Small nucleolar RNA U19: a 128-nucleotide RNA sequence from Carnegiea gigantea. NCBI's taxonomy places the organism under Eukaryota, Streptophytina, Spermatophyta, eudicotyledons, Carnegiea. Its family is annotated with nucleolus and RNA processing in the Gene Ontology. For this family Rfam cites "Experimental RNomics: identification of 140 candidates for small non-messenger RNAs in the plant Arabidopsis thaliana" (Marker et al., Curr Biol, 2002). The match comes from Rfam's covariance-model search (68 bits).
RNA sequence: UAUUGGUUUAGUUAGGAGGCAUAAACUAACUUGGGUGUCAAAUGUUAUGCAUUUGAUCCUUUUGCUGAGGCCUUUUGAGGGGACUAUUCUUAAUCAAUGGAUUGCCCUCCAAGCAGCCUUGGACAUAU
Numbered sequence: 001u002a003u004u005g006g007u008u009u010a011g012u013u014a015g016g017a018g019g020c021a022u023a024a025a026c027u028a029a030c031u032u033g034g035g036u037g038u039c040a041a042a043u044g045u046u047a048u049g050c051a052u053u054u055g056a057u058c059c060u061u062u063u064g065c066u067g068a069g070g071c072c073u074u075u076u077g078a079g080g081g082g083a084c085u086a087u088u089c090u091u092a093a094u095c096a097a098u099g100g101a102u103u104g105c106c107c108u109c110c111a112a113g114c115a116g117c118c119u120u121g122g123a124c125a126u127a128u
Stems, first nucleotide, its partner, number of pairs: 004021002007018003034059002041053005065122007074113004079109004084104001086102004